[Rfam]
RNA sequence: UAGAGAGAAAGGCAAAAUCAUUGAAAAGUGAUGACGCAAAGCUAUAGGGGCUAAAGCGAAUUAUUCUAUGUCAGCCAGCUACCGUC
Numbered sequence: 001u002a003g004a005g006a007g008a009a010a011g012g013c014a015a016a017a018u019c020a021u022u023g024a025a026a027a028g029u030g031a032u033g034a035c036g037c038a039a040a041g042c043u044a045u046a047g048g049g050g051c052u053a054a055a056g057c058g059a060a061u062u063a064u065u066c067u068a069u070g071u072c073a074g075c076c077a078g079c080u081a082c083c084g085u086c
Stems, first nucleotide, its partner, number of pairs: 012037002017032006040080004047076002049072003056066001058064001
The record is an 86-nucleotide RNA sequence from Paraliobacillus ryukyuensis, which matches "c-di-GMP-I riboswitch aptamer" in Rfam.
The source organism's lineage runs through Bacteria, Bacillati, Bacilli, Bacillaceae and Paraliobacillus.
The match comes from Rfam's covariance-model search (72 bits).